[Rfam]
The record is a 96-nucleotide RNA sequence from Photobacterium jeanii, which matches "Tryptophan operon leader" in Rfam. From the family's description: At least 6 amino acid operons are known to be regulated by attenuation. The family's consensus secondary structure is taken from published work. The match comes from Rfam's covariance-model search (43 bits). For this family Rfam cites "Attenuation in amino acid biosynthetic operons" (Kolter and Yanofsky, Annu Rev Genet, 1982).
RNA sequence: UUUUCUUGGUGGUGGCACUCCCAACUUUGGGCGGUGUAAUUCCCUGUACCUGUAGGACAGCAUUCACACUAGCCCGCACACUGCGGGCUUUUUUAC
Number, nucleotide and partner (000 for none) at each position: 001u000002u000003u000004u000005c000006u000007u000008g000009g043010u000011g041012g040013u000014g000015g037016c036017a035018c034019u033020c031021c030022c029023a028024a000025c000026u000027u000028u023029g022030g021031g020032c000033g019034g018035u017036g016037u015038a000039a000040u012041u011042c000043c009044c000045u000046g000047u000048a000049c000050c000051u000052g000053u000054a000055g000056g000057a000058c000059a000060g000061c000062a000063u000064u000065c000066a000067c000068a000069c000070u000071a089072g088073c087074c086075c085076g084077c083078a000079c000080a000081c000082u000083g077084c076085g075086g074087g073088c072089u071090u000091u000092u000093u000094u000095a000096c000